[Rfam]
RNA: Glycine riboswitch aptamer
Organism: Novibacillus thermophilus
RNA sequence: GGACGCACCUCUGGAGAGAGCCGCUCGCGGCCACCGAAGGGGCAAACCAAUCUGCACGAUGCGGAUUGCGAAACUCUCAGGUAAAAGGACAGGGGAACGGAU
Numbered sequence: 001g002g003a004c005g006c007a008c009c010u011c012u013g014g015a016g017a018g019a020g021c022c023g024c025u026c027g028c029g030g031c032c033a034c035c036g037a038a039g040g041g042g043c044a045a046a047c048c049a050a051u052c053u054g055c056a057c058g059a060u061g062c063g064g065a066u067u068g069c070g071a072a073a074c075u076c077u078c079a080g081g082u083a084a085a086a087g088g089a090c091a092g093g094g095g096a097a098c099g100g101a102u
Base pairs, nucleotide, nucleotide: 008095009094010093011092012091013090020031021030022029023028033082034081035080036078037077040076041075042074047068